[Rfam]
RNA sequence: UGAAUGCACAUUAAUUAUCCUUGGGGCCAUGGGAUAAACAAAAACCCUGCAAAAAUAAGUUAGCACACCCUAAAAUGGUUCUAGCAUGAUUACUAACCUAUGGCUUUGAUACGAGUUGAUGGGAAAAAACC
Numbered sequence: 001u002g003a004a005u006g007c008a009c010a011u012u013a014a015u016u017a018u019c020c021u022u023g024g025g026g027c028c029a030u031g032g033g034a035u036a037a038a039c040a041a042a043a044a045c046c047c048u049g050c051a052a053a054a055a056u057a058a059g060u061u062a063g064c065a066c067a068c069c070c071u072a073a074a075a076u077g078g079u080u081c082u083a084g085c086a087u088g089a090u091u092a093c094u095a096a097c098c099u100a101u102g103g104c105u106u107u108g109a110u111a112c113g114a115g116u117u118g119a120u121g122g123g124a125a126a127a128a129a130c131c
Stems, first nucleotide, its partner, number of pairs: 009121008022108012048086002053080002056077002060073004
Dot-bracket structure: ........((((((((.....((((((((((((..............((...((.((..((((......))))..)).))....))..........)))))))))))).....))))))))..........
RNA: MIR845_2 microRNA precursor family
Organism: Vitis rotundifolia